Shown here is a 97-nucleotide RNA from Synechococcales cyanobacterium C42_A2020_086, a member of the family "Glutamine riboswitch aptamer (glnA leader)". Taxonomically the source falls in Synechococcales (Bacteria, Bacillati, Cyanobacteriota, Cyanophyceae).
RNA sequence: AUCGUUCAUCCCCUGUGCAUAAGCAACGCUUGCACCUAGGGGACGGAAGUAGGAGAUAGCCAGCAGAUCGCCAGGAGAUCCACCGAAGGAACGCGUU
Numbered sequence: 001a002u003c004g005u006u007c008a009u010c011c012c013c014u015g016u017g018c019a020u021a022a023g024c025a026a027c028g029c030u031u032g033c034a035c036c037u038a039g040g041g042g043a044c045g046g047a048a049g050u051a052g053g054a055g056a057u058a059g060c061c062a063g064c065a066g067a068u069c070g071c072c073a074g075g076a077g078a079u080c081c082a083c084c085g086a087a088g089g090a091a092c093g094c095g096u097u
Stems, first nucleotide, its partner, number of pairs: 003093005009043007046094001052084002
Overview:
The literature on the family includes a 2015 paper in Cell Rep by Ren et al., "Structural and Dynamic Basis for Low-Affinity, High-Selectivity Binding of L-Glutamine by the Glutamine Riboswitch".